[Rfam]
RNA: c-di-AMP riboswitch aptamer (ydaO/yuaA leader)
Organism: Streptomyces sp. YIM 130001
RNA sequence: UCGCGUAAAGCGCCGUAGGCAGGAGCGGGGGACCCAAGGUUUGCGCCGGGCCCGGCCGUUGAGCAUCUGCUCGACGGCGGACCGGCUUGGGGUGAAGUCUCGCGAGAGGGUGGAAACCCUCCCGAGACCGGACAACUCACUUGGUCCGAACCCGACAGCUCACCUCGCAGGCGUCGGUGAGGGGAUCA
Numbered sequence: 001u002c003g004c005g006u007a008a009a010g011c012g013c014c015g016u017a018g019g020c021a022g023g024a025g026c027g028g029g030g031g032a033c034c035c036a037a038g039g040u041u042u043g044c045g046c047c048g049g050g051c052c053c054g055g056c057c058g059u060u061g062a063g064c065a066u067c068u069g070c071u072c073g074a075c076g077g078c079g080g081a082c083c084g085g086c087u088u089g090g091g092g093u094g095a096a097g098u099c100u101c102g103c104g105a106g107a108g109g110g111u112g113g114a115a116a117c118c119c120u121c122c123c124g125a126g127a128c129c130g131g132a133c134a135a136c137u138c139a140c141u142u143g144g145u146c147c148g149a150a151c152c153c154g155a156c157a158g159c160u161c162a163c164c165u166c167g168c169a170g171g172c173g174u175c176g177g178u179g180a181g182g183g184g185a186u187c188a
Stems, first nucleotide, its partner, number of pairs: 011173004025168006035089004090153003098127004130147004